[Rfam]
RNA sequence: GUGAAGAAGUAGACGAAAGAGAGAUCUUAAGAGCGCUAGGAAUGGGAAUAUGGAGGAAUGCCAAACUUAUUUGUUUUCACCUCUAGUAUUGGGGGUGCAAAUGUUAUGUUUGGUGUUUUCCCGAUGCCUCCCAUUCCUAUGGUUCUUGAGCACUCCUUUCUCUUCUCUUUCUCC
Numbered sequence: 001g002u003g004a005a006g007a008a009g010u011a012g013a014c015g016a017a018a019g020a021g022a023g024a025u026c027u028u029a030a031g032a033g034c035g036c037u038a039g040g041a042a043u044g045g046g047a048a049u050a051u052g053g054a055g056g057a058a059u060g061c062c063a064a065a066c067u068u069a070u071u072u073g074u075u076u077u078c079a080c081c082u083c084u085a086g087u088a089u090u091g092g093g094g095g096u097g098c099a100a101a102u103g104u105u106a107u108g109u110u111u112g113g114u115g116u117u118u119u120c121c122c123g124a125u126g127c128c129u130c131c132c133a134u135u136c137c138u139a140u141g142g143u144u145c146u147u148g149a150g151c152a153c154u155c156c157u158u159u160c161u162c163u164u165c166u167c168u169u170u171c172u173c174c
Stems, first nucleotide, its partner, number of pairs: 009165001011163003015159003021155003026150009037139011049126003053122001055121004060116002
A member of the RNA family "MIR2118 microRNA precursor family" from Triticum aestivum, 174 nucleotides long. It scores 132 bits against the family's covariance model. The family's consensus secondary structure was predicted with RNAalifold. A reference for the family is Xue et al. (2009), "Characterization and expression profiles of miRNAs in rice seeds", Nucleic Acids Res.